The record is an 83-nucleotide sequence from Ictidomys tridecemlineatus, which matches "Small nucleolar RNA SNORD71" in Rfam. Lineage of the source: Eukaryota > Euteleostomi > Sarcopterygii > Marmotini > Ictidomys. The literature on the family includes a 2001 paper in EMBO J by Huttenhofer et al., "RNomics: an experimental approach that identifies 201 candidates for novel, small, non-messenger RNAs in mouse". The sequence is in the family's curated seed alignment. About the family: snoRNA HBII-239 belongs to the family of C/D snoRNAs.It is the human orthologue of the mouse MBII-239 described and is predicted to guide 2'O-ribose methylation of 5.8S rRNA on residue U14. Rfam 15.1 lists 556 matches to the family in 528 species.
[Rfam]
RNA sequence: UGUGUGUUGGAGGAUGAAAAUAAGGAGUGAUCCAUCGCUAAGUGUCUACACGAUGCUGAAACUCAAAUUGCUGACAGCACACA
Numbered sequence: 001u002g003u004g005u006g007u008u009g010g011a012g013g014a015u016g017a018a019a020a021u022a023a024g025g026a027g028u029g030a031u032c033c034a035u036c037g038c039u040a041a042g043u044g045u046c047u048a049c050a051c052g053a054u055g056c057u058g059a060a061a062c063u064c065a066a067a068u069u070g071c072u073g074a075c076a077g078c079a080c081a082c083a
Stems, first nucleotide, its partner, number of pairs: 002082007009072002012033004017028001035059002037056002042051003
Dot-bracket structure: .(((((((((.((((.(..........).)))).((((...(((....)))...)).))...........))...))))))).
The base pairs follow the family's consensus structure, which was predicted with RNAalifold.